[Rfam]
RNA sequence: UUUCAGCGAACCCAGCCACAGCGGUUCUCCCCGCCCCUGGCCGUAUGUCGCCAGCAACGCCUGCGCCUC
Numbered sequence: 001u002u003u004c005a006g007c008g009a010a011c012c013c014a015g016c017c018a019c020a021g022c023g024g025u026u027c028u029c030c031c032c033g034c035c036c037c038u039g040g041c042c043g044u045a046u047g048u049c050g051c052c053a054g055c056a057a058c059g060c061c062u063g064c065g066c067c068u069c
Stems, first nucleotide, its partner, number of pairs: 014026004029063001032059002037054003041050001043048001